[Rfam]
RNA sequence: GCAUGGUAAUGGAUUUAUGAUGAGGUCAGCGAAGUGACCCCUUCAUAGUGUACCCCAUGCUAGAGAAAUACUGUUCCGAACCAUUGGCAGGUCUGAAUCCCCAUUGGCCUGAUCCACUGAAGUGAACUGCACAGUU
Numbered sequence: 001g002c003a004u005g006g007u008a009a010u011g012g013a014u015u016u017a018u019g020a021u022g023a024g025g026u027c028a029g030c031g032a033a034g035u036g037a038c039c040c041c042u043u044c045a046u047a048g049u050g051u052a053c054c055c056c057a058u059g060c061u062a063g064a065g066a067a068a069u070a071c072u073g074u075u076c077c078g079a080a081c082c083a084u085u086g087g088c089a090g091g092u093c094u095g096a097a098u099c100c101c102c103a104u105u106g107g108c109c110u111g112a113u114c115c116a117c118u119g120a121a122g123u124g125a126a127c128u129g130c131a132c133a134g135u136u
Stems, first nucleotide, its partner, number of pairs: 001060004005054004015048006022041001024039001026036001071129001073127004082119002087114001089110005